[Rfam]
Nucleotides: 123
Stems, first nucleotide, its partner, number of pairs: 005119002009114001012111002016107013030093009
Number, partner (000 for none) and nucleotide at each position: 001000u002000c003000g004000u005119g006118a007000a008000g009114g010000c011000u012111a013110a014000g015000u016107g017106g018105a019104g020103a021102a022101g023100a024099g025098a026097g027096a028095g029000a030093g031092u032091a033090c034089a035088g036087c037086u038085u039000u040000g041000g042000c043000c044000g045000g046000c047000c048000g049000g050000u051000a052000c053000u054000u055000g056000c057000u058000u059000a060000a061000u062000u063000a064000g065000u066000c067000a068000g069000a070000u071000c072000g073000a074000u075000c076000g077000a078000u079000c080000g081000a082000u083000c084000g085038a086037g087036g088035c089034u090033g091032u092031a093030c094000c095028c096027u097026c098025u099024c100023u101022c102021u103020u104019c105018u106017u107016c108000u109000c110013u111012u112000a113000g114009u115000u116000u117000u118006u119005c120000g121000a122000u123000g
The record is a 123-nucleotide RNA sequence from Oryza brachyantha, which matches "MIR529 microRNA precursor family" in Rfam.
The family has 3 seed sequences and 55 matches in Rfam 15.1.
The match comes from Rfam's covariance-model search (84 bits).
The organism belongs to Oryza, within Eukaryota.
The literature on the family includes a 2007 paper in Plant J by Lu et al., "MicroRNAs in loblolly pine (Pinus taeda L.) and their association with fusiform rust gall development".